[Rfam]
RNA: c-di-GMP-II-GAG riboswitch aptamer
RNA sequence: GCUGGGGAGGGGGGCAUCGAUCCACCUGCGUAAUUGGUCGCUGACGCGGUGGGGAGCCAGAGCGAAACCGGCCUUGCCCAGU
Numbered sequence: 001g002c003u004g005g006g007g008a009g010g011g012g013g014g015c016a017u018c019g020a021u022c023c024a025c026c027u028g029c030g031u032a033a034u035u036g037g038u039c040g041c042u043g044a045c046g047c048g049g050u051g052g053g054g055a056g057c058c059a060g061a062g063c064g065a066a067a068c069c070g071g072c073c074u075u076g077c078c079c080a081g082u
Stems, first nucleotide, its partner, number of pairs: 001082006008075004013058003022052005028047003036069002038065005